[Rfam]
RNA sequence: UGCAAAUGAUGUCUUUCUCACGAUGGUCUUCCAAGUCUAUGGCUUUGACGAUAACGCCUACAGGCAUUACUGAUGCAUUUGG
Dot-bracket structure: ((((.....................................................................)))).....
Numbered sequence: 001u002g003c004a005a006a007u008g009a010u011g012u013c014u015u016u017c018u019c020a021c022g023a024u025g026g027u028c029u030u031c032c033a034a035g036u037c038u039a040u041g042g043c044u045u046u047g048a049c050g051a052u053a054a055c056g057c058c059u060a061c062a063g064g065c066a067u068u069a070c071u072g073a074u075g076c077a078u079u080u081g082g
Stems, first nucleotide, its partner, number of pairs: 001077004

The family of this 82-nucleotide RNA sequence from Clupea harengus is "Small nucleolar RNA SNORD35". Rfam links the family to the GO terms RNA processing and nucleolus. From the family's description: U35 is a C/D box snoRNA located in intron 6 of ribosomal protein L13A and intron 3 of ribosomal protein S11 in humans and at homologous positions in mouse and chicken ribosomal protein genes. U35 guides the methylation of 2'-O-ribose sites in 28S rRNA. The match comes from Rfam's covariance-model search (63 bits). On this family, see Nicoloso et al., J Mol Biol 1996: "Intron-encoded, antisense small nucleolar RNAs: the characterization of nine novel species points to their direct role as guides for the 2'-O-ribose methylation of rRNAs". The family's RNA type in Rfam is C/D-box small nucleolar RNA. The base pairs follow the family's consensus structure, which was predicted with PFOLD.